[Rfam]
RNA sequence: GCCAAUGCUUUCUAGGGUUCCGCUUCUUGAAAAAGAAGGUCAGGUCCGAGAGAAAGCGGUACGGGCAGUAAUGCCUGUAUACACGGAGGGACAAAAGCCCGGGAGAG
Numbered sequence: 001g002c003c004a005a006u007g008c009u010u011u012c013u014a015g016g017g018u019u020c021c022g023c024u025u026c027u028u029g030a031a032a033a034a035g036a037a038g039g040u041c042a043g044g045u046c047c048g049a050g051a052g053a054a055a056g057c058g059g060u061a062c063g064g065g066c067a068g069u070a071a072u073g074c075c076u077g078u079a080u081a082c083a084c085g086g087a088g089g090g091a092c093a094a095a096a097g098c099c100c101g102g103g104a105g106a107g
Stems, first nucleotide, its partner, number of pairs: 007057006015047002020044002022041001023038006059080008082102001084105001088100003
Dot-bracket structure: ......((((((..((...(((((((((....))))))..).)).))....)))))).((((((((......)))))))).(.[...(((.......))).)..]..